[Rfam]
RNA sequence: ACAGGUUUGAGACCAUAGUAGAACUGCUCACAGUGUGACCUGUCAGAUUCCAAUGAAUCUGCAAAUUCUGCU
Number, nucleotide and partner (000 for none) at each position: 001a000002c000003a000004g000005g000006u000007u000008u000009g000010a000011g039012a036013c035014c000015a000016u000017a072018g071019u070020a069021g068022a067023a066024c033025u032026g031027c000028u000029c000030a000031c026032a025033g024034u000035g013036u012037g000038a000039c011040c000041u000042g000043u000044c061045a060046g059047a058048u057049u056050c055051c000052a000053a000054u000055g050056a049057a048058u047059c046060u045061g044062c000063a000064a000065a000066u023067u022068c021069u020070g019071c018072u017
The record is a 72-nucleotide RNA sequence from Alligator mississippiensis, which matches "Mammalian CPEB3 ribozyme" in Rfam. Lineage of the source: Eukaryota > Deuterostomia > Amniota > Sauria > Alligator. The match comes from Rfam's covariance-model search (38 bits). The base pairs follow the family's consensus structure, which is taken from published work. Rfam links the family to the GO term RNA nuclease activity.